Rfam assigns this 182-nucleotide RNA sequence from Amycolatopsis sp. FDAARGOS 1241 to the family "M-box riboswitch aptamer (ykoK leader)". Taxonomically the source falls in Amycolatopsis (Bacteria, Bacillati, Actinomycetota, Actinomycetes). For this family Rfam cites "Magnesium-sensing riboswitches in bacteria" (Ramesh and Winkler, RNA Biol, 2010). Rfam describes the family as follows. M-box riboswitch, also know as ykoK leader is described as a metaloregulatory RNA that sense divalent metals and function as a genetic control element of genes related to divalent metal transport in bacteria. It was first reported upstream of the B.subtilis ykoK gene and genes with related functions in other bacteria.
RNA sequence: GCUGACCGAGGUUUCGACAGGCACCUCGUUAGGUCCGGACACAGGCCACUGAUCUGACGACGUCGAGAGACGCCCAAGGUCAGGACAGGUUUCCCCGGGCUAAGGGGUUGACCCGAAGUGGCUUCCCGUCGGGAGACGGGACACGCCGGGCAGUGCCAAAGCUCUUACGACGUGUGGGGUGC
Numbered sequence: 001g002c003u004g005a006c007c008g009a010g011g012u013u014u015c016g017a018c019a020g021g022c023a024c025c026u027c028g029u030u031a032g033g034u035c036c037g038g039a040c041a042c043a044g045g046c047c048a049c050u051g052a053u054c055u056g057a058c059g060a061c062g063u064c065g066a067g068a069g070a071c072g073c074c075c076a077a078g079g080u081c082a083g084g085a086c087a088g089g090u091u092u093c094c095c096c097g098g099g100c101u102a103a104g105g106g107g108u109u110g111a112c113c114c115g116a117a118g119u120g121g122c123u124u125c126c127c128g129u130c131g132g133g134a135g136a137c138g139g140g141a142c143a144c145g146c147c148g149g150g151c152a153g154u155g156c157c158a159a160a161g162c163u164c165u166u167a168c169g170a171c172g173u174g175u176g177g178g179g180u181g182c
Base pairs, nucleotide, nucleotide: 006177007176008175010173011168012167013103016162020157021156022155025153026152033151034150035149036148037147038146045122046121047120048119049118051081052080053079054078055077061072062071063070064069088113089112090111091110094106095105096104124141125140126139127138128137